Rfam assigns this 57-nucleotide RNA from Arenimonas metalli to the family "terC RNA". It scores 41 bits against the family's covariance model. Pairs were carried over by alignment from the consensus structure, which is taken from published work.
RNA sequence: GCAUGACUGCGGGCCCCUCUGGUCGUGCGCAAAGCACGGCGAUGUCGUAGUCGACGA
Numbered sequence: 001g002c003a004u005g006a007c008u009g010c011g012g013g014c015c016c017c018u019c020u021g022g023u024c025g026u027g028c029g030c031a032a033a034g035c036a037c038g039g040c041g042a043u044g045u046c047g048u049a050g051u052c053g054a055c056g057a
Base pairs, nucleotide, nucleotide: 006051007050008049009048010047011046012045022040023039024038025037026036027035028034